Glycine riboswitch aptamer: an 86-nucleotide sequence from Cognatiyoonia koreensis.
RNA sequence: CCUACACUUUUGGGAGAACCGGUAGUCCCGGUGCCGAAGGAGCAACCGCCUCGGAAACUCUCAGGCCAAAGGACCAAAGGUGUAUA
Numbered sequence: 001c002c003u004a005c006a007c008u009u010u011u012g013g014g015a016g017a018a019c020c021g022g023u024a025g026u027c028c029c030g031g032u033g034c035c036g037a038a039g040g041a042g043c044a045a046c047c048g049c050c051u052c053g054g055a056a057a058c059u060c061u062c063a064g065g066c067c068a069a070a071g072g073a074c075c076a077a078a079g080g081u082g083u084a085u086a
Base pairs, nucleotide, nucleotide: 006081007080008079009078010077011076012075013074019031020030021029022028033066034065035064036062037061040060041059042058046053
NCBI's taxonomy places the organism under Bacteria, Pseudomonadota, Alphaproteobacteria, Paracoccaceae, Cognatiyoonia. This family represents the bacterial glycine riboswitch.